The record is an 85-nucleotide sequence from Malus domestica, which matches "MIR3627 microRNA precursor family" in Rfam. Rfam links the family to the GO terms miRNA-mediated post-transcriptional gene silencing and RISC complex. Pairs were carried over by alignment from the consensus structure, which was predicted with RNAalifold. Rfam 15.1 lists 24 matches to the family in 10 species.
[Rfam]
RNA sequence: GGAUUUAUGUUCGCAGGAGAGAUGGCACUAAUUGUGCCACAAUUGUCAAUAAUUGUUGCCAUCUCUUCUGUGACCAAAAAGAUCU
Numbered sequence: 001g002g003a004u005u006u007a008u009g010u011u012c013g014c015a016g017g018a019g020a021g022a023u024g025g026c027a028c029u030a031a032u033u034g035u036g037c038c039a040c041a042a043u044u045g046u047c048a049a050u051a052a053u054u055g056u057u058g059c060c061a062u063c064u065c066u067u068c069u070g071u072g073a074c075c076a077a078a079a080a081g082a083u084c085u
Stems, first nucleotide, its partner, number of pairs: 001083001004080003008076002011073017029055007